[Rfam]
RNA sequence: GCCACAUGAUGAUCUCAUAGAUAACAUUAGUAUUUUGUGCAAAGAUGACACAUUAUCUAUCACCCGUGACUGAUGGCU
Numbered sequence: 001g002c003c004a005c006a007u008g009a010u011g012a013u014c015u016c017a018u019a020g021a022u023a024a025c026a027u028u029a030g031u032a033u034u035u036u037g038u039g040c041a042a043a044g045a046u047g048a049c050a051c052a053u054u055a056u057c058u059a060u061c062a063c064c065c066g067u068g069a070c071u072g073a074u075g076g077c078u
Stems, first nucleotide, its partner, number of pairs: 001077004030040004
The family of this 78-nucleotide sequence from Esox lucius is "Small nucleolar RNA SNORD83". On this family, see Jady and Kiss, Nucleic Acids Res 2000: "Characterisation of the U83 and U84 small nucleolar RNAs: two novel 2'-O-ribose methylation guide RNAs that lack complementarities to ribosomal RNAs". Pairs were carried over by alignment from the consensus structure, which was predicted with PFOLD. Gene Ontology terms of the family: RNA processing and nucleolus. It is annotated as a C/D-box small nucleolar RNA.